Annotation:
Shown here is a 348-nucleotide part of an RNA from Pseudomassariella vexata, a member of the family "Ascomycota telomerase RNA". It is annotated as a non-coding RNA gene. For this family Rfam cites "The common ancestral core of vertebrate and fungal telomerase RNAs" (Qi et al., Nucleic Acids Res, 2013). Its Rfam clan is "Telomerase clan". The source organism's lineage runs through Eukaryota, Opisthokonta, Pezizomycotina, Pseudomassariaceae and Pseudomassariella. Pairs were carried over by alignment from the consensus structure.
RNA sequence: CUAAACAGAAAGAGCUUCAUUUUGACUUGGUAGCAGAGCAUAUGUUUGGUGUUCGCCGAUUUUGGUAGUGGACUUGUCGAGGAUGGUGCUGGUUAGAUGGGGGAAUCGUGCUUGGUUCGCUGGACCAUUGUUGGUUUGCACGCUUGGUUUGUUGUGUAAGGCAUGAAGCAAGGCCGGGACCCAUCUUGAGUUGGUGUCAAAGUUUAGGCUUGUCCGGACUUGUGGACUGUCUUGGAUGACGACUGGCAAACUGCAAUUUUUUGUUCUUGUACAUCUGGACAGGCCUUUGCUGAGGUAGUCCUAGGCUGUUCUCUCCACAGGUUGGCAGAGGGCAGUCCCCUUUUUUAG
Numbered sequence: 001c002u003a004a005a006c007a008g009a010a011a012g013a014g015c016u017u018c019a020u021u022u023u024g025a026c027u028u029g030g031u032a033g034c035a036g037a038g039c040a041u042a043u044g045u046u047u048g049g050u051g052u053u054c055g056c057c058g059a060u061u062u063u064g065g066u067a068g069u070g071g072a073c074u075u076g077u078c079g080a081g082g083a084u085g086g087u088g089c090u091g092g093u094u095a096g097a098u099g100g101g102g103g104a105a106u107c108g109u110g111c112u113u114g115g116u117u118c119g120c121u122g123g124a125c126c127a128u129u130g131u132u133g134g135u136u137u138g139c140a141c142g143c144u145u146g147g148u149u150u151g152u153u154g155u156g157u158a159a160g161g162c163a164u165g166a167a168g169c170a171a172g173g174c175c176g177g178g179a180c181c182c183a184u185c186u187u188g189a190g191u192u193g194g195u196g197u198c199a200a201a202g203u204u205u206a207g208g209c210u211u212g213u214c215c216g217g218a219c220u221u222g223u224g225g226a227c228u229g230u231c232u233u234g235g236a237u238g239a240c241g242a243c244u245g246g247c248a249a250a251c252u253g254c255a256a257u258u259u260u261u262u263g264u265u266c267u268u269g270u271a272c273a274u275c276u277g278g279a280c281a282g283g284c285c286u287u288u289g290c291u292g293a294g295g296u297a298g299u300c301c302u303a304g305g306c307u308g309u310u311c312u313c314u315c316c317a318c319a320g321g322u323u324g325g326c327a328g329a330g331g332g333c334a335g336u337c338c339c340c341u342u343u344u345u346u347a348g
Stems, first nucleotide, its partner, number of pairs: 178198003181194003200211004